RNA sequence: AUCUUAGUGCUCGGGCUUUACGCGUAUCAGUGAGGAGAGAUCCGAGAUCGUGUUUUUGCUGGUUGAAAACUACCAACGUGACUACUUCAAAUGAGCUUCUAGCACGCUUGGGAAUUUUUGAAACACCUUGACUCUUUGACUCUUGAGU
Numbered sequence: 001a002u003c004u005u006a007g008u009g010c011u012c013g014g015g016c017u018u019u020a021c022g023c024g025u026a027u028c029a030g031u032g033a034g035g036a037g038a039g040a041u042c043c044g045a046g047a048u049c050g051u052g053u054u055u056u057u058g059c060u061g062g063u064u065g066a067a068a069a070c071u072a073c074c075a076a077c078g079u080g081a082c083u084a085c086u087u088c089a090a091a092u093g094a095g096c097u098u099c100u101a102g103c104a105c106g107c108u109u110g111g112g113a114a115u116u117u118u119u120g121a122a123a124c125a126c127c128u129u130g131a132c133u134c135u136u137u138g139a140c141u142c143u144u145g146a147g148u
Base pairs, nucleotide, nucleotide: 020053021052022051023050024049026048027047028046034043035042036041086112087111088110089109090108092106093105095103096102097101
Dot-bracket structure: ...................(((((.(((.....(((....)))..))))))))................................(((((.((.(((...))).)).)))))....................................
Rfam assigns this 148-nucleotide RNA sequence from Penicillium concentricum to the family "U4 spliceosomal RNA". From the family's description: U4 small nuclear RNA (U4 snRNA) is a component of the major U2-dependent spliceosome. The match comes from Rfam's covariance-model search (85 bits). The source organism's lineage runs through Eukaryota, Fungi, saccharomyceta, Eurotiales and Penicillium. By type it is a spliceosomal small nuclear RNA.